[Rfam]
Rfam assigns this 76-nucleotide sequence from Pangasianodon hypophthalmus to the family "mir-19 microRNA precursor family". Rfam links the family to the GO terms RISC complex and miRNA-mediated post-transcriptional gene silencing. The organism belongs to Pangasianodon, within Eukaryota.
RNA sequence: GCCCUCUGUCAGUUUUGCAUCGUUGCACCACAAGAAAAACCGAGUUGUGCAAAUCUAUGCAAAACUGACAGCGGCC
Numbered sequence: 001g002c003c004c005u006c007u008g009u010c011a012g013u014u015u016u017g018c019a020u021c022g023u024u025g026c027a028c029c030a031c032a033a034g035a036a037a038a039a040c041c042g043a044g045u046u047g048u049g050c051a052a053a054u055c056u057a058u059g060c061a062a063a064a065c066u067g068a069c070a071g072c073g074g075c076c
Stems, first nucleotide, its partner, number of pairs: 003074002006071014023052006030045002
For this family Rfam cites "Embryonic stem cell-specific MicroRNAs" (Houbaviy et al., Dev Cell, 2003).